[Rfam]
RNA sequence: AAAUCACGUUUUAUCGAGUAAUUUUUGAGUUAUCGCUAAUUCUUGAUUUAUCAAAAUCAAUCGUUAGCGAUAACUCAAAAAUUACUCGAUAAAACGUGAUU
Numbered sequence: 001a002a003a004u005c006a007c008g009u010u011u012u013a014u015c016g017a018g019u020a021a022u023u024u025u026u027g028a029g030u031u032a033u034c035g036c037u038a039a040u041u042c043u044u045g046a047u048u049u050a051u052c053a054a055a056a057u058c059a060a061u062c063g064u065u066a067g068c069g070a071u072a073a074c075u076c077a078a079a080a081a082u083u084a085c086u087c088g089a090u091a092a093a094a095c096g097u098g099a100u101u
Stems, first nucleotide, its partner, number of pairs: 004099006012091001014089002018085002023081003027076007
RNA: MIR480 microRNA precursor family